RNA sequence: UCGCGUCCGCCAACCGGUUCAGCCGUGACGCGGAAGGUUUCAUUCACCAACUCGAGUCCCCCGCAGGGGGACGAAAGGUCAGCG
Numbered sequence: 001u002c003g004c005g006u007c008c009g010c011c012a013a014c015c016g017g018u019u020c021a022g023c024c025g026u027g028a029c030g031c032g033g034a035a036g037g038u039u040u041c042a043u044u045c046a047c048c049a050a051c052u053c054g055a056g057u058c059c060c061c062c063g064c065a066g067g068g069g070g071a072c073g074a075a076a077g078g079u080c081a082g083c084g
Stems, first nucleotide, its partner, number of pairs: 002084003006034005015025004036048003050079003056072007
The record is an 84-nucleotide RNA sequence from Ottowia testudinis, which matches "SucA RNA motif" in Rfam. Rfam classes the family as a cis-regulatory element. The organism belongs to Ottowia, within Bacteria. Pairs were carried over by alignment from the consensus structure, which is taken from published work.